[Rfam]
RNA sequence: UUUGGGAAACGAUGCCAAAGUUUUUUAAACAGUUUUGUGAUCAGAAGCGCCAGCGAGCUCUGCCGAAUUUGUUUAUAUUUGCACGUCAGUCUGAUCCAAAG
Numbered sequence: 001u002u003u004g005g006g007a008a009a010c011g012a013u014g015c016c017a018a019a020g021u022u023u024u025u026u027a028a029a030c031a032g033u034u035u036u037g038u039g040a041u042c043a044g045a046a047g048c049g050c051c052a053g054c055g056a057g058c059u060c061u062g063c064c065g066a067a068u069u070u071g072u073u074u075a076u077a078u079u080u081g082c083a084c085g086u087c088a089g090u091c092u093g094a095u096c097c098a099a100a101g
Base pairs, nucleotide, nucleotide: 001101002100003099005097006096007095